Background: Trypanosomatid snoRNA TB10cs1H3: a 73-nucleotide RNA from Trypanosoma vivax. The base pairs follow the family's consensus structure, which was predicted with WAR. Taxonomically the source falls in Trypanosoma vivax (Eukaryota, Euglenozoa, Kinetoplastea, Trypanosoma).
[Rfam]
RNA sequence: CUCGCACGCAGGAACGUGGCAGGCCAAUGAGUGCGCACUCGUCUCUCAUGUGGUUCAACAACAUGGUCCGAGA
Numbered sequence: 001c002u003c004g005c006a007c008g009c010a011g012g013a014a015c016g017u018g019g020c021a022g023g024c025c026a027a028u029g030a031g032u033g034c035g036c037a038c039u040c041g042u043c044u045c046u047c048a049u050g051u052g053g054u055u056c057a058a059c060a061a062c063a064u065g066g067u068c069c070g071a072g073a
Stems, first nucleotide, its partner, number of pairs: 011069003015065004023054004029047003033043001